[Rfam]
RNA sequence: GGUCGGUUGUGUUAGGCAUAUUGCCCGAUGCACUUACACACGCUUGACCCACCAGCUUCGGCAAAUACAUUAAGAGGUACUGAGAACGAGGCGUACCGAAAGGGAGACUCGCGCAGUC
Number, nucleotide and partner (000 for none) at each position: 001g025002g024003u000004c023005g022006g021007u020008u000009g000010u000011g019012u018013u000014a000015g000016g000017c000018a012019u011020a007021u006022u005023g004024c002025c001026c000027g000028a000029u000030g000031c000032a000033c000034u000035u000036a000037c000038a000039c000040a000041c000042g000043c000044u000045u000046g000047a000048c000049c000050c000051a000052c000053c000054a000055g062056c061057u000058u000059c000060g000061g056062c055063a000064a000065a000066u000067a000068c000069a000070u000071u000072a000073a000074g000075a000076g000077g118078u000079a117080c116081u115082g114083a000084g000085a000086a000087c111088g110089a109090g108091g000092c000093g000094u000095a000096c103097c102098g000099a000100a000101a000102g097103g096104g000105a000106g000107a000108c090109u089110c088111g087112c000113g000114c082115a081116g080117u079118c077